[Rfam]
Nucleotides: 046
Stems, first nucleotide, its partner, number of pairs: 006021006
Number, partner (000 for none) and nucleotide at each position: 001000c002000c003000a004000a005000a006021g007020g008019c009018u010017c011016u012000u013000u014000u015000a016011a017010g018009a019008g020007c021006c022000a023000c024000c025000c026000a027000a028000u029000u030000u031000g032000u033000c034000c035000g036000u037000a038000a039000g040000a041000a042000g043000a044000g045000c046000a
Source information
Rfam assigns this 46-nucleotide RNA from Chanos chanos to the family "Histone 3' UTR stem-loop". For this family Rfam cites "The sequence of the stem and flanking sequences at the 3' end of histone mRNA are critical determinants for the binding of the stem-loop binding protein" (Williams and Marzluff, Nucleic Acids Res, 1995). The mRNAs of metazoan histone genes lack a poly-A tail. 3' end processing occurs at a site between a highly conserved stem-loop (modelled by this family) and a purine rich region around 20 nts downstream (the histone downstream element, or HDE). It is annotated as a cis-regulatory element. Gene Ontology term of the family: mRNA 3'-end processing by stem-loop binding and cleavage.